[Rfam]
RNA sequence: CGGAUUUAAUCGUAGUUAAGGGAACUCGGCAAAUUGGCCCCGUAACUUUGGGAUAAGGGGUGCCUGCCUGGAGAUCAGGCAGGUCGCAGUGACCGGGGCGCACUAACUGUCUAAUAACAACAUAGGUGACUGCAACUCCGAAAGGACUAGUAUAGUCACUGAUUCCUGCCCAGUGCGAGUAUCUGAAUACCGGGUUCAACCGGACGAAGGACUCGUAAACGGCGGGGGUAACUAUGACCCUCUUAAGGUAGCGUAGUACCUUGUCGCUUAAUUGGCGACUUGCAUGAAUGGAUUAAUGAGUGCGCUACUGUCCCUAACACGAAUCCGUUGAACCUUUUGUUCUAGUGCAGAGACUAGAGA
Number, nucleotide and partner (000 for none) at each position: 001c327002g326003g325004a324005u000006u000007u000008a000009a000010u322011c321012g320013u319014a000015g318016u317017u316018a315019a000020g313021g312022g311023a000024a000025c000026u000027c000028g000029g000030c000031a000032a000033a000034u000035u000036g000037g061038c060039c059040c058041c057042g000043u000044a000045a000046c051047u000048u000049u000050g000051g046052g000053a000054u000055a000056a000057g041058g040059g039060g038061u037062g084063c083064c082065u081066g080067c079068c078069u077070g076071g000072a000073g000074a000075u000076c070077a069078g068079g067080c066081a065082g064083g063084u062085c089086g000087c000088a000089g085090u000091g000092a000093c000094c000095g000096g000097g306098g305099c304100g303101c302102a301103c300104u298105a297106a000107c000108u122109g121110u120111c000112u000113a000114a000115u000116a000117a000118c000119a000120a110121c109122a108123u000124a000125g160126g159127u158128g157129a156130c155131u154132g153133c150134a000135a000136c000137u146138c145139c144140g000141a000142a000143a000144g139145g138146a137147c000148u000149a000150g133151u000152a000153u132154a131155g130156u129157c128158a127159c126160u125161g000162a000163u000164u292165c291166c290167u000168g223169c222170c221171c000172a000173g220174u219175g216176c215177g214178a213179g212180u000181a000182u211183c210184u209185g000186a000187a000188u000189a000190c203191c202192g201193g200194g000195u000196u000197c000198a000199a000200c193201c192202g191203g190204a000205c000206g000207a000208a000209g184210g183211a182212c179213u178214c177215g176216u175217a000218a000219a174220c173221g170222g169223c168224g242225g241226g240227g239228g238229u237230a000231a000232c000233u000234a000235u000236g000237a229238c228239c227240c226241u225242c224243u247244u000245a000246a000247g243248g000249u000250a000251g000252c000253g000254u000255a000256g000257u000258a000259c000260c000261u000262u000263g279264u278265c277266g276267c275268u274269u000270a000271a000272u000273u000274g268275g267276c266277g265278a264279c263280u000281u000282g000283c000284a000285u000286g000287a000288a000289u000290g166291g165292a164293u000294u000295a000296a000297u105298g104299a000300g103301u102302g101303c100304g099305c098306u097307a000308c000309u000310g000311u022312c021313c020314c000315u018316a017317a016318c015319a013320c012321g011322a010323a000324u004325c003326c002327g001328u000329u000330g000331a000332a000333c000334c000335u000336u000337u000338u000339g000340u000341u358342c357343u356344a355345g354346u000347g000348c000349a000350g000351a000352g000353a000354c345355u344356a343357g342358a341359g000360a000

This 360-nucleotide part of an RNA from Methanoregula boonei belongs to the Rfam family "Archaeal large subunit ribosomal RNA".
The organism belongs to Methanoregula boonei, within Archaea.
Its family is annotated with ribosome and structural constituent of ribosome in the Gene Ontology.